[Rfam]
RNA sequence: AGUUCUUUCGCACCACCGCCGGCAGGAGCGGGGGAACCACUUCGGGUCCUGGUCUCAGGAUCCUUGGGGUGAAGCCGAUCGGUUCGCCGAUCGGCCGGGCACAACCUCAGCCCGAACCCGACAGCUCACCUCGAAGGCGUCGAGAGGUUCA
Numbered sequence: 001a002g003u004u005c006u007u008u009c010g011c012a013c014c015a016c017c018g019c020c021g022g023c024a025g026g027a028g029c030g031g032g033g034g035a036a037c038c039a040c041u042u043c044g045g046g047u048c049c050u051g052g053u054c055u056c057a058g059g060a061u062c063c064u065u066g067g068g069g070u071g072a073a074g075c076c077g078a079u080c081g082g083u084u085c086g087c088c089g090a091u092c093g094g095c096c097g098g099g100c101a102c103a104a105c106c107u108c109a110g111c112c113c114g115a116a117c118c119c120g121a122c123a124g125c126u127c128a129c130c131u132c133g134a135a136g137g138c139g140u141c142g143a144g145a146g147g148u149u150c151a
Stems, first nucleotide, its partner, number of pairs: 003027003029133005038066002067119003075094006097113004

Overview
Shown here is a 151-nucleotide sequence from Phycicoccus elongatus, a member of the family "c-di-AMP riboswitch aptamer (ydaO/yuaA leader)". Lineage of the source: Bacteria > Micrococcales > Intrasporangiaceae > Phycicoccus > Phycicoccus elongatus. Gene Ontology terms of the family: regulation of gene expression and cyclic-di-AMP binding.